[Rfam]
Nucleotides: 124
Stems, first nucleotide, its partner, number of pairs: 002123002005120005011114009021104019040084007
Number, partner (000 for none) and nucleotide at each position: 001000a002123g003122a004000a005120u006119a007118u008117a009116a010000u011114a012113a013112a014111c015110c016109g017108u018107c019106u020000c021104u022103u023102a024101a025100u026099u027098u028097u029096u030095a031094a032093c033092u034091a035090a036089a037088a038087a039086a040084c041083u042082a043081a044080g045079a046078a047000c048000c049000g050000a051000u052000u053000c054000u055000u056000a057000a058000a059000u060000a061000a062000g063000a064000u065000a066000u067000u068000c069000a070000a071000g072000a073000g074000c075000c076000g077000g078046u079045u080044c081043u082042u083041a084040g085000u086039u087038u088037u089036u090035u091034u092033a093032g094031u095030u096029a097028a098027a099026a100025g101024u102023u103022a104021a105000a106019a107018g108017a109016c110015g111014g112013u113012u114011u115000c116009u117008u118007a119006u120005a121000c122003u123002c124000c
This 124-nucleotide RNA sequence from Brassica cretica belongs to the Rfam family "MIR9563 microRNA precursor family". Lineage of the source: Eukaryota > Tracheophyta > Magnoliopsida > rosids > Brassica. The family's consensus secondary structure was predicted with RNAalifold. Its family is annotated with miRNA-mediated post-transcriptional gene silencing and RISC complex in the Gene Ontology.